[Rfam]
RNA sequence: CACCGACAUCAGCGAUUCGUUCUGCGAGCCGUUGCCGACCGCGAGGUAGGAGUUCAUUCCCAGCUCGCGCAUCUGCUGCUCGCCGAUCACGCGGGUGACGACGUUUUUGCUCCAGGUAUCCGCCAGCUGGCGCGCCUGAGAGGCGAGAUAGGCCGCGUUGCAGAUAUUCGGCGGCAUGUUGCCGAGAUCUUUUGC
Numbered sequence: 001c002a003c004c005g006a007c008a009u010c011a012g013c014g015a016u017u018c019g020u021u022c023u024g025c026g027a028g029c030c031g032u033u034g035c036c037g038a039c040c041g042c043g044a045g046g047u048a049g050g051a052g053u054u055c056a057u058u059c060c061c062a063g064c065u066c067g068c069g070c071a072u073c074u075g076c077u078g079c080u081c082g083c084c085g086a087u088c089a090c091g092c093g094g095g096u097g098a099c100g101a102c103g104u105u106u107u108u109g110c111u112c113c114a115g116g117u118a119u120c121c122g123c124c125a126g127c128u129g130g131c132g133c134g135c136c137u138g139a140g141a142g143g144c145g146a147g148a149u150a151g152g153c154c155g156c157g158u159u160g161c162a163g164a165u166a167u168u169c170g171g172c173g174g175c176a177u178g179u180u181g182c183c184g185a186g187a188u189c190u191u192u193u194g195c
Stems, first nucleotide, its partner, number of pairs: 005189002012032003016028005033043003050059002062077003078135002081132005087126001091123007100111001102109002136163003140159002143156003167186006
This 195-nucleotide RNA belongs to the Rfam family "Yersinia sRNA 276".
For this family Rfam cites "Transcriptomic profiling of Yersinia pseudotuberculosis reveals reprogramming of the Crp regulon by temperature and uncovers Crp as a master regulator of small RNAs" (Nuss et al., PLoS Genet, 2015).
The family's RNA type in Rfam is antisense RNA.